[Rfam]
RNA sequence: CGCGAACCCGUGCGGCAGAGGACGGGGGAACCACUUCCGGGCGCGGCCCUGCCGCGUCCUCGGGGUGAAGCUCAGCGCACCGCGCGAGCCGGGUGACCUUCCCACCCGAACCCGACAGCUCACCUCGCAGGCGUCGGAGAG
Numbered sequence: 001c002g003c004g005a006a007c008c009c010g011u012g013c014g015g016c017a018g019a020g021g022a023c024g025g026g027g028g029a030a031c032c033a034c035u036u037c038c039g040g041g042c043g044c045g046g047c048c049c050u051g052c053c054g055c056g057u058c059c060u061c062g063g064g065g066u067g068a069a070g071c072u073c074a075g076c077g078c079a080c081c082g083c084g085c086g087a088g089c090c091g092g093g094u095g096a097c098c099u100u101c102c103c104a105c106c107c108g109a110a111c112c113c114g115a116c117a118g119c120u121c122a123c124c125u126c127g128c129a130g131g132c133g134u135c136g137g138a139g140a141g
Stems, first nucleotide, its partner, number of pairs: 001133003008021002023127005032062001063113003071088003091107004
The record is a 141-nucleotide RNA sequence from Quadrisphaera sp. DSM 44207, which matches "c-di-AMP riboswitch aptamer (ydaO/yuaA leader)" in Rfam. The source organism's lineage runs through Bacteria, Bacillati, Actinomycetes, Kineosporiaceae and Quadrisphaera.